[Rfam]
RNA sequence: AGAAUUAGAGGACGGAACGGGCAGCCGUCGCUAUACUUCCAAAAGAAGUAGUUGGAGAUGUGGGAAUGUCACCCCACCUAAUUCU
Numbered sequence: 001a002g003a004a005u006u007a008g009a010g011g012a013c014g015g016a017a018c019g020g021g022c023a024g025c026c027g028u029c030g031c032u033a034u035a036c037u038u039c040c041a042a043a044a045g046a047a048g049u050a051g052u053u054g055g056a057g058a059u060g061u062g063g064g065a066a067u068g069u070c071a072c073c074c075c076a077c078c079u080a081a082u083u084c085u
Base pairs, nucleotide, nucleotide: 001085002084003083004082005081006080007079008078011029012028013027014026015025020070021069022068023067031055034050035049036048037047038046039045060077061076062075063074064073
The record is an 85-nucleotide RNA, which matches "skipping-rope RNA" in Rfam. It is annotated as a small RNA. Rfam's curators put it in the seed alignment.